RNA: Ribosomal S15 leader
RNA sequence: UUCCUGCGCUGAAUUAGUGUUUGGCCAGGACGAUGUAACACUUUAAACACUAAGGUAAUUAUUAUGUCUUUAAAUGCAGCAGAAAAAGCAGCAGUAGUUGCAGAAUACGCAACUAAAGAA
Numbered sequence: 001u002u003c004c005u006g007c008g009c010u011g012a013a014u015u016a017g018u019g020u021u022u023g024g025c026c027a028g029g030a031c032g033a034u035g036u037a038a039c040a041c042u043u044u045a046a047a048c049a050c051u052a053a054g055g056u057a058a059u060u061a062u063u064a065u066g067u068c069u070u071u072a073a074a075u076g077c078a079g080c081a082g083a084a085a086a087a088g089c090a091g092c093a094g095u096a097g098u099u100g101c102a103g104a105a106u107a108c109g110c111a112a113c114u115a116a117a118g119a120a
Stems, first nucleotide, its partner, number of pairs: 008025005051072005